[Rfam]
RNA sequence: AGAAUCCUUCGGGGCUGGGUGAAACUCCCGACCGGCGGUGAUGAAGCGUAAAACGUUUCUUAGUCCGUGACCCGUUUUUUUAAACGGUGGAUCUGGUGAGAUUCCGGGGCCGACAGUGAAAGUCUGGAUGGGAGAAGGAUCAA
Numbered sequence: 001a002g003a004a005u006c007c008u009u010c011g012g013g014g015c016u017g018g019g020u021g022a023a024a025c026u027c028c029c030g031a032c033c034g035g036c037g038g039u040g041a042u043g044a045a046g047c048g049u050a051a052a053a054c055g056u057u058u059c060u061u062a063g064u065c066c067g068u069g070a071c072c073c074g075u076u077u078u079u080u081u082a083a084a085c086g087g088u089g090g091a092u093c094u095g096g097u098g099a100g101a102u103u104c105c106g107g108g109g110c111c112g113a114c115a116g117u118g119a120a121a122g123u124c125u126g127g128a129u130g131g132g133a134g135a136a137g138g139a140u141c142a143a
Stems, first nucleotide, its partner, number of pairs: 004140007017029003031123002033112002035068004063110002072087002092108005114126003